[Rfam]
RNA sequence: GUCUGAGGCUGGGGCUUUGCGGGCAAGCUGAGUGAAUCGGUUUCUCCAUCAACUGGCCUACAAAGUCCCAGUUUCCGGC
Numbered sequence: 001g002u003c004u005g006a007g008g009c010u011g012g013g014g015c016u017u018u019g020c021g022g023g024c025a026a027g028c029u030g031a032g033u034g035a036a037u038c039g040g041u042u043u044c045u046c047c048a049u050c051a052a053c054u055g056g057c058c059u060a061c062a063a064a065g066u067c068c069c070a071g072u073u074u075c076c077g078g079c
Stems, first nucleotide, its partner, number of pairs: 003077001005075004010070004015065005021059004026054002029051002
Dot-bracket structure: ..(.((((.((((.(((((.((((.((.((...................)).)).)))).))))).)))).)))).)..